A member of the RNA family "Plant small nucleolar RNA U3" from Capsicum baccatum, 214 nucleotides long. For this family Rfam cites "The uRNA database" (Zwieb, Nucleic Acids Res, 1997). The match comes from Rfam's covariance-model search (147 bits). Rfam's curators write: Small nucleolar RNAs (snoRNAs) are involved in the processing and modification of rRNA in the nucleolus. The organism belongs to Capsicum, within Eukaryota.
RNA sequence: AUGACCUUACUUGAACAGGAUCUGUUCUAUAGGCUUGUACCACUGUAACCUUGAGUCCUAAGGAGAUUGGAAACCAAGUCUGGUGGGUGAUCAGUGGCAAUGAGACUAGAGCAUGAUUAACAACCACCGUGGCCUUUGGGUCAUGGUGCCGUAGAUGAUCAUUCUCUGCCUGGUCCGCUGGGCUUGAGAUGGUCUCAUGGCUAUCUGACAGACU
Numbered sequence: 001a002u003g004a005c006c007u008u009a010c011u012u013g014a015a016c017a018g019g020a021u022c023u024g025u026u027c028u029a030u031a032g033g034c035u036u037g038u039a040c041c042a043c044u045g046u047a048a049c050c051u052u053g054a055g056u057c058c059u060a061a062g063g064a065g066a067u068u069g070g071a072a073a074c075c076a077a078g079u080c081u082g083g084u085g086g087g088u089g090a091u092c093a094g095u096g097g098c099a100a101u102g103a104g105a106c107u108a109g110a111g112c113a114u115g116a117u118u119a120a121c122a123a124c125c126a127c128c129g130u131g132g133c134c135u136u137u138g139g140g141u142c143a144u145g146g147u148g149c150c151g152u153a154g155a156u157g158a159u160c161a162u163u164c165u166c167u168g169c170c171u172g173g174u175c176c177g178c179u180g181g182g183c184u185u186g187a188g189a190u191g192g193u194c195u196c197a198u199g200g201c202u203a204u205c206u207g208a209c210a211g212a213c214u
Base pairs, nucleotide, nucleotide: 001038002037003035005033006032007031013027014026015025016024017023018022043069045067046066049063050062051061052060053059078213079212080211081210082209097201098200100198101197102196103195104194105193106192107191108190110163111162120152121151125148126147127146128145129144130143131142132141133140134139165187166186168183169182170181171180172179173178